Background: Shown here is a 265-nucleotide RNA sequence from Tepidibacter thalassicus, a member of the family "Bacterial large signal recognition particle RNA". The match comes from Rfam's covariance-model search (212 bits). Taxonomically the source falls in Tepidibacter thalassicus (Bacteria, Bacillati, Bacillota, Clostridia). Rfam's curators write: The signal recognition particle (SRP) is a universally conserved ribonucleoprotein involved in the co-translational targeting of proteins to membranes. Clan: SRP clan.
RNA sequence: CUGUGCUAGACGGGGAGGUAGCGGUGCCUUGUAACCUGCAAUCCGCUAUAGCAGGGUUUAAAUCCAUCUGGAGGUCUAAUUCUUGUAGAGCUGACCUAAAUAAGUGGUGAUGAUGUUUGGGUCCUGUGCAAUGGAAGCUCACGAACCCCGCCAGGUCCGGAAGGAAGCAACGGUAAGUGAUUACUUUCAUGUGUCGCAGGGGCGCCUAAAUUGAGCUAACUGUUUAGGUAACGUCUAUGAGAUUAGAACGAAGGAUGGUGCACAG
Numbered sequence: 001c002u003g004u005g006c007u008a009g010a011c012g013g014g015g016a017g018g019u020a021g022c023g024g025u026g027c028c029u030u031g032u033a034a035c036c037u038g039c040a041a042u043c044c045g046c047u048a049u050a051g052c053a054g055g056g057u058u059u060a061a062a063u064c065c066a067u068c069u070g071g072a073g074g075u076c077u078a079a080u081u082c083u084u085g086u087a088g089a090g091c092u093g094a095c096c097u098a099a100a101u102a103a104g105u106g107g108u109g110a111u112g113a114u115g116u117u118u119g120g121g122u123c124c125u126g127u128g129c130a131a132u133g134g135a136a137g138c139u140c141a142c143g144a145a146c147c148c149c150g151c152c153a154g155g156u157c158c159g160g161a162a163g164g165a166a167g168c169a170a171c172g173g174u175a176a177g178u179g180a181u182u183a184c185u186u187u188c189a190u191g192u193g194u195c196g197c198a199g200g201g202g203c204g205c206c207u208a209a210a211u212u213g214a215g216c217u218a219a220c221u222g223u224u225u226a227g228g229u230a231a232c233g234u235c236u237a238u239g240a241g242a243u244u245a246g247a248a249c250g251a252a253g254g255a256u257g258g259u260g261c262a263c264a265g
Stems, first nucleotide, its partner, number of pairs: 001265006008059004012030004017025001019023001035055005064258006073249001075247003079244001081242008092230002096227006104220002106217003115211008123200006129191002132189005137182001139180004148173003156165003
Dot-bracket structure: ((((((.((((((((.(.(...).).))))....(((((...........)))))))))....((((((...(.(((.(.((((((((...((..((((((..(((((......((((((((((((((((.((((((.((((.....(((.....(((....))).....)))...)))).)..)))))))...))))))...))))))))...))).)).)))))).))....)))))))).)))).)...)))))).))))))